Shown here is a 93-nucleotide RNA from Prunus persica, a member of the family "MIR6288 microRNA precursor family". It scores 75 bits against the family's covariance model.

[Rfam]
RNA sequence: UCAAAAUUAGUCACUUGUCAUUUUCUAAUUGGUUCUUAGUAUGUUCAAUUUUUUUAAAAAAACAAUUAGAAAAUGACGAGUUGCUAGUUUUGG
Numbered sequence: 001u002c003a004a005a006a007u008u009a010g011u012c013a014c015u016u017g018u019c020a021u022u023u024u025c026u027a028a029u030u031g032g033u034u035c036u037u038a039g040u041a042u043g044u045u046c047a048a049u050u051u052u053u054u055u056a057a058a059a060a061a062a063c064a065a066u067u068a069g070a071a072a073a074u075g076a077c078g079a080g081u082u083g084c085u086a087g088u089u090u091u092g093g
Stems, first nucleotide, its partner, number of pairs: 002092010013081019033061002036057004